RNA sequence: UGUUAGGUUGGUGCAAGAGUAAUUGCUGUUUUUGCCAUUGAAAGUAAUGGCAAAAACUUCAGUUACUUUUGCACCAACCUAAUA
Numbered sequence: 001u002g003u004u005a006g007g008u009u010g011g012u013g014c015a016a017g018a019g020u021a022a023u024u025g026c027u028g029u030u031u032u033u034g035c036c037a038u039u040g041a042a043a044g045u046a047a048u049g050g051c052a053a054a055a056a057c058u059u060c061a062g063u064u065a066c067u068u069u070u071g072c073a074c075c076a077a078c079c080u081a082a083u084a
Base pairs, nucleotide, nucleotide: 001084002083003082004081005080006079007078008077009076010075011074012073013072014071015070016069017068018067019066020065021064022063023062024061025060028057029056030055031054032053033052034051035050036049037048038047039046040045